Small nucleolar RNA SNORD72: an 80-nucleotide sequence from Etheostoma spectabile.
Rfam describes the family as follows. snoRNA HBII-240 belongs to the CD family of snoRNAs. It is the human orthologue of the mouse MBII-240 and is predicted to guide 2'O-ribose methylation of the large 28S rRNA at residue U4590.
On this family, see Huttenhofer et al., EMBO J 2001: "RNomics: an experimental approach that identifies 201 candidates for novel, small, non-messenger RNAs in mouse".
The match comes from Rfam's covariance-model search (53 bits).
The pairing is the family consensus, mapped onto this sequence.
The family has 16 seed sequences and 726 matches in Rfam 15.1.
RNA sequence: GUCUUGUCAAUGAUGUUUACAAACACAAAUGUCUGAACAAAUGAUUUUCUAUGAUUCAUUCUUCUGUACUGAGACAAGAC
Numbered sequence: 001g002u003c004u005u006g007u008c009a010a011u012g013a014u015g016u017u018u019a020c021a022a023a024c025a026c027a028a029a030u031g032u033c034u035g036a037a038c039a040a041a042u043g044a045u046u047u048u049c050u051a052u053g054a055u056u057c058a059u060u061c062u063u064c065u066g067u068a069c070u071g072a073g074a075c076a077a078g079a080c
Stems, first nucleotide, its partner, number of pairs: 002079007